[Rfam]
The record is a 146-nucleotide RNA from Limnoraphis robusta, which matches "c-di-AMP riboswitch aptamer (ydaO/yuaA leader)" in Rfam.
Nucleotides: 146
Base pairs, nucleotide, nucleotide: 002017004015018126019125020124021123022122023121028036029035037111038110039109045087046086047085048084090105091104092103093102
Number, partner (000 for none) and nucleotide at each position: 001000a002017u003000a004015c005000a006000a007000g008000u009000g010000u011000u012000g013000c014000u015004g016000g017002a018126a019125c020124g021123g022122a023121g024000g025000a026000a027000c028036c029035a030000a031000a032000u033000u034000u035029u036028g037111g038110g039109g040000c041000u042000a043000a044000u045087c046086u047085c048084g049000c050000a051000a052000a053000g054000g055000u056000a057000g058000u059000c060000u061000u062000u063000g064000g065000a066000a067000a068000c069000a070000g071000a072000g073000u074000g075000a076000c077000c078000a079000a080000g081000a082000c083000a084048u085047g086046a087045g088000a089000a090105g091104g092103g093102c094000a095000u096000c097000u098000c099000u100000c101000a102093g103092c104091c105090c106000u107000c108000g109039c110038c111037c112000g113000u114000c115000a116000g117000c118000u119000a120000a121023c122022u123021u124020c125019g126018u127000a128000g129000g130000c131000a132000u133000u134000g135000a136000g137000a138000g139000g140000a141000g142000u143000c144000u145000g146000a
It scores 66 bits against the family's covariance model.